[Rfam]
RNA: Actino-pnp RNA
Organism: Arthrobacter sp. NamB2
RNA sequence: CGCGGUCCUCGGUAGUGGUCUCCGGAGCGAGGCGAAAGCCGCUCCGUGGAUCUCGAUCGAAGACCGGG
Numbered sequence: 001c002g003c004g005g006u007c008c009u010c011g012g013u014a015g016u017g018g019u020c021u022c023c024g025g026a027g028c029g030a031g032g033c034g035a036a037a038g039c040c041g042c043u044c045c046g047u048g049g050a051u052c053u054c055g056a057u058c059g060a061a062g063a064c065c066g067g068g
Stems, first nucleotide, its partner, number of pairs: 001068001003066005009060005017052005023046007